[Rfam]
RNA: MicF RNA
Nucleotides: 086
Stems, first nucleotide, its partner, number of pairs: 032047006062080008
Number, partner (000 for none) and nucleotide at each position: 001000c002000g003000c004000u005000a006000u007000c008000a009000u010000c011000a012000u013000u014000a015000u016000u017000u018000u019000c020000a021000u022000u023000a024000u025000u026000a027000c028000c029000u030000u031000c032047a033046u034045u035044a036043u037042c038000c039000g040000a041000a042037g043036a044035u045034a046033a047032u048000u049000u050000c051000u052000g053000c054000a055000u056000a057000c058000c059000u060000u061000u062080a063079a064078c065077c066076g067075g068074c069073u070000u071000c072000u073069g074068g075067c076066c077065g078064g079063u080062u081000u082000u083000u084000u085000a086000u